[Rfam]
RNA sequence: CACAACUUGUCGGAGUGCCUGUGGGCUGAGAUCGCUGUCGCGAGAUCCGUUGAACCUGAUCGGGGUUAUCCCUGCGUAGGAAACAAGAUCUGAAGUCGC
Numbered sequence: 001c002a003c004a005a006c007u008u009g010u011c012g013g014a015g016u017g018c019c020u021g022u023g024g025g026c027u028g029a030g031a032u033c034g035c036u037g038u039c040g041c042g043a044g045a046u047c048c049g050u051u052g053a054a055c056c057u058g059a060u061c062g063g064g065g066u067u068a069u070c071c072c073u074g075c076g077u078a079g080g081a082a083a084c085a086a087g088a089u090c091u092g093a094a095g096u097c098g099c
Base pairs, nucleotide, nucleotide: 006087007086008085009084010083011049012048013047014046016043017026018025019024033042034041035040055080056079057078058077061074062073063072064071